Notes: A member of the RNA family "mir-236 microRNA precursor family" from Caenorhabditis elegans, 75 nucleotides long. The base pairs follow the family's consensus structure, which was predicted with RNAalifold.
RNA sequence: GUCCAGCGUCUUACCUGUUCAAUAUUUAGACUGACUAUCAAAGAGAUCUAAUACUGUCAGGUAAUGACGCUGGAU
Numbered sequence: 001g002u003c004c005a006g007c008g009u010c011u012u013a014c015c016u017g018u019u020c021a022a023u024a025u026u027u028a029g030a031c032u033g034a035c036u037a038u039c040a041a042a043g044a045g046a047u048c049u050a051a052u053a054c055u056g057u058c059a060g061g062u063a064a065u066g067a068c069g070c071u072g073g074a075u
Base pairs, nucleotide, nucleotide: 001075002074003073004072005071006070007069008068009067010066011064012063013062014061015060016059017058020056021055023053024052025051026050028049029048030047
Rfam's curators put it in the seed alignment. Clan: mir-8 microRNA precursor clan. NCBI's taxonomy places the organism under Eukaryota, Opisthokonta, Rhabditidae, Peloderinae, Caenorhabditis.